[Rfam]
RNA sequence: GUGGUAGGACAAGCAAUCGCUUUAAACAUUAAAGAGGAAAGUCCGGACUCCAUAGAGUAUGAUGCCUCUUAACGAGAGGGAAAAGAAAUUUUACGGAAAGUGCCGCAGAAACUAAACCGCCUAAUUUAAUUAGGUAAGGGUGAAAAAGUGAGGUAAGAGCUCACUAGGGUCGUUAGUAAUAAAGAUCUUGGGUAAACCCCAUCAGGAGCAAGAUUAAAUAGGAAAAGAGAAGCUACUCGCUUCGUUAUUAUUUUCGGGUAAAUCGCUUGAGAUUAGUUGUGAAACUAAUCCUAGAUAAAUGAUUGCUAAUACAGAAUCCGGCUUAUUAUCCUACCACAUGU
Numbered sequence: 001g002u003g004g005u006a007g008g009a010c011a012a013g014c015a016a017u018c019g020c021u022u023u024a025a026a027c028a029u030u031a032a033a034g035a036g037g038a039a040a041g042u043c044c045g046g047a048c049u050c051c052a053u054a055g056a057g058u059a060u061g062a063u064g065c066c067u068c069u070u071a072a073c074g075a076g077a078g079g080g081a082a083a084a085g086a087a088a089u090u091u092u093a094c095g096g097a098a099a100g101u102g103c104c105g106c107a108g109a110a111a112c113u114a115a116a117c118c119g120c121c122u123a124a125u126u127u128a129a130u131u132a133g134g135u136a137a138g139g140g141u142g143a144a145a146a147a148g149u150g151a152g153g154u155a156a157g158a159g160c161u162c163a164c165u166a167g168g169g170u171c172g173u174u175a176g177u178a179a180u181a182a183a184g185a186u187c188u189u190g191g192g193u194a195a196a197c198c199c200c201a202u203c204a205g206g207a208g209c210a211a212g213a214u215u216a217a218a219u220a221g222g223a224a225a226a227g228a229g230a231a232g233c234u235a236c237u238c239g240c241u242u243c244g245u246u247a248u249u250a251u252u253u254u255c256g257g258g259u260a261a262a263u264c265g266c267u268u269g270a271g272a273u274u275a276g277u278u279g280u281g282a283a284a285c286u287a288a289u290c291c292u293a294g295a296u297a298a299a300u301g302a303u304u305g306c307u308a309a310u311a312c313a314g315a316a317u318c319c320g321g322c323u324u325a326u327u328a329u330c331c332u333a334c335c336a337c338a339u340g341u
Base pairs, nucleotide, nucleotide: 001337002336003335004334005333006332007331008330009329011326012307013306014305015304016303017302018301020034021033022032023031024030025029039324040323041322043321044320045319046318047317048208049207050206051205055242056241057240058239060204061203062202063201064200065079066078067077068076069075080094081092082091083090084089095199096198100197101196102193103192104191117139118138119135120134121133122132123131124130125129147165148164149163150162151161152160167188168187169186170185171184173182174181175180212264213263214262215261222255223254224253225252226251234247235246237244271290272289273288274287275286276285277284278283